The family of this 175-nucleotide sequence from Clostridiales bacterium CHKCI006 is "Lysine riboswitch aptamer". Lineage of the source: Bacteria > Bacillati > Bacillota > Clostridia > Eubacteriales. About the family: Riboswitches are metabolite binding domains within certain messenger RNAs that serve as precision sensors for their corresponding targets. The base pairs follow the family's consensus structure, which is taken from published work.
[Rfam]
RNA sequence: CGAAGGGGUAGAGGCGCGAUGAUUAAGAGUAGCCUGAAGGAGACCGAAAGUCGAUGAAUUCAGGAGAAAGGAUGAGUCGCCGAAGUCAGUGAGUCAAAUCACUGGCUGGGGGCAUAUUUAAGAGAUAUGUCACUGUCUUUAUGACUGCCAAUCAUAAAGGAGCACUAUCUUAAGG
Numbered sequence: 001c002g003a004a005g006g007g008g009u010a011g012a013g014g015c016g017c018g019a020u021g022a023u024u025a026a027g028a029g030u031a032g033c034c035u036g037a038a039g040g041a042g043a044c045c046g047a048a049a050g051u052c053g054a055u056g057a058a059u060u061c062a063g064g065a066g067a068a069a070g071g072a073u074g075a076g077u078c079g080c081c082g083a084a085g086u087c088a089g090u091g092a093g094u095c096a097a098a099u100c101a102c103u104g105g106c107u108g109g110g111g112g113c114a115u116a117u118u119u120a121a122g123a124g125a126u127a128u129g130u131c132a133c134u135g136u137c138u139u140u141a142u143g144a145c146u147g148c149c150a151a152u153c154a155u156a157a158a159g160g161a162g163c164a165c166u167a168u169c170u171u172a173a174g175g
Base pairs, nucleotide, nucleotide: 006170007169008168009167010166011165016080017079018078019077020076024072033064034063035062036061037060038059084107085106086105087104088103089102090101091100092099108134109133111131112130113129114128115127116126117125118124136160137159138158139157140156141155142154